[Rfam]
RNA sequence: CUGAGCUACGCGCGAGUUCCACUAAGCAAGUUUUGAGAAUAUUUCAAUACAAAAACUUGACACGUUGAGCUCGUUUGUGGGGUCAG
Number, nucleotide and partner (000 for none) at each position: 001c086002u085003g084004a083005g000006c080007u079008a078009c077010g076011c000012g074013c073014g072015a071016g070017u069018u068019c067020c000021a065022c064023u000024a000025a000026g000027c059028a058029a057030g056031u055032u054033u053034u052035g000036a000037g000038a000039a000040u000041a000042u000043u000044u000045c000046a000047a000048u000049a000050c000051a000052a034053a033054a032055a031056c030057u029058u028059g027060a000061c000062a000063c000064g022065u021066u000067g019068a018069g017070c016071u015072c014073g013074u012075u000076u010077g009078u008079g007080g006081g000082g000083u004084c003085a002086g001

Annotation
Shown here is an 86-nucleotide RNA sequence from Drosophila kikkawai, a member of the family "mir-969 microRNA precursor family". The organism belongs to Sophophora, within Eukaryota. The literature on the family includes a 2007 paper in Genome Res by Stark et al., "Systematic discovery and characterization of fly microRNAs using 12 Drosophila genomes".